[Rfam]
RNA sequence: GCUGUAUGCCCUCCUUGGGCGUUUCCUCCCUAGACUUGGGCCGCACAUCAGUGCGGCCUUUUUUCUUGGUGCGG
Numbered sequence: 001g002c003u004g005u006a007u008g009c010c011c012u013c014c015u016u017g018g019g020c021g022u023u024u025c026c027u028c029c030c031u032a033g034a035c036u037u038g039g040g041c042c043g044c045a046c047a048u049c050a051g052u053g054c055g056g057c058c059u060u061u062u063u064u065c066u067u068g069g070u071g072c073g074g
Stems, first nucleotide, its partner, number of pairs: 008020004038059009